[Rfam]
Rfam assigns this 82-nucleotide RNA from Anaerosolibacter carboniphilus to the family "Clostridiales-2 RNA". The match comes from Rfam's covariance-model search (84 bits). The family's RNA type in Rfam is small RNA.
Nucleotides: 082
Stems, first nucleotide, its partner, number of pairs: 015035008056070005
Number, partner (000 for none) and nucleotide at each position: 001000u002000a003000u004000a005000u006000a007000u008000g009000g010000g011000g012000u013000g014000u015035g016034c017033a018032g019031a020030g021029g022028g023000u024000a025000u026000u027000c028022c029021c030020c031019u032018u033017u034016g035015c036000c037000g038000c039000u040000u041000u042000u043000a044000g045000g046000a047000a048000g049000g050000u051000g052000c053000u054000c055000a056070g057069g058068c059067u060066g061000c062000c063000u064000u065000g066060c067059a068058g069057c070056c071000g072000u073000c074000g075000a076000a077000g078000g079000a080000a081000a082000c
NCBI's taxonomy places the organism under Bacteria, Bacillati, Clostridia, Peptostreptococcales, Anaerosolibacter.